[Rfam]
RNA sequence: UCACGUACCUUGUGUUGGGCUACGCUGAUCAACAAGGGCGCGCCCCGAGAAGAGGCAUUUCGCUGACUCUCGCCAUUUUCCCAAAUGGGGAUAAUGGAGCACUUAAUUUUUGUUAGCGGGGGUGGGCCGCCACUUCCCAC
Numbered sequence: 001u002c003a004c005g006u007a008c009c010u011u012g013u014g015u016u017g018g019g020c021u022a023c024g025c026u027g028a029u030c031a032a033c034a035a036g037g038g039c040g041c042g043c044c045c046c047g048a049g050a051a052g053a054g055g056c057a058u059u060u061c062g063c064u065g066a067c068u069c070u071c072g073c074c075a076u077u078u079u080c081c082c083a084a085a086u087g088g089g090g091a092u093a094a095u096g097g098a099g100c101a102c103u104u105a106a107u108u109u110u111u112g113u114u115a116g117c118g119g120g121g122g123u124g125g126g127c128c129g130c131c132a133c134u135u136c137c138c139a140c
Base pairs, nucleotide, nucleotide: 012102013101014100015099017045018044019043020042023040024039025038026037047071048070049069050068052067054064055063056062073097074096075095076093077091078090080088081087118138119137120136121135122133123132124131125130
U1 spliceosomal RNA: a 140-nucleotide RNA from Rhipicephalus microplus. Pairs were carried over by alignment from the consensus structure, which is taken from published work. Taxonomically the source falls in Boophilus (Eukaryota, Ixodida, Ixodoidea, Ixodidae). The family's RNA type in Rfam is spliceosomal small nuclear RNA.